[Rfam]
RNA sequence: GUUGAUAGCUUCUAGGGUUCCGGUUUAAGUAUUAACGACUUAAGUGACUGGUCCAAGAGAAGCAAGCUGACUUGGAAAUUUCCACAAAAUUUAGCAAACCAAGAUUAGCUACACGGCGGGAUAAAAGCCCGGGAGAA
Numbered sequence: 001g002u003u004g005a006u007a008g009c010u011u012c013u014a015g016g017g018u019u020c021c022g023g024u025u026u027a028a029g030u031a032u033u034a035a036c037g038a039c040u041u042a043a044g045u046g047a048c049u050g051g052u053c054c055a056a057g058a059g060a061a062g063c064a065a066g067c068u069g070a071c072u073u074g075g076a077a078a079u080u081u082c083c084a085c086a087a088a089a090u091u092u093a094g095c096a097a098a099c100c101a102a103g104a105u106u107a108g109c110u111a112c113a114c115g116g117c118g119g120g121a122u123a124a125a126a127g128c129c130c131g132g133g134a135g136a137a
Stems, first nucleotide, its partner, number of pairs: 008063005015054002020051002022048001023045008065110006072103001112132001114135001118130003
RNA: Guanidine-I riboswitch aptamer
Organism: Symplocastrum torsivum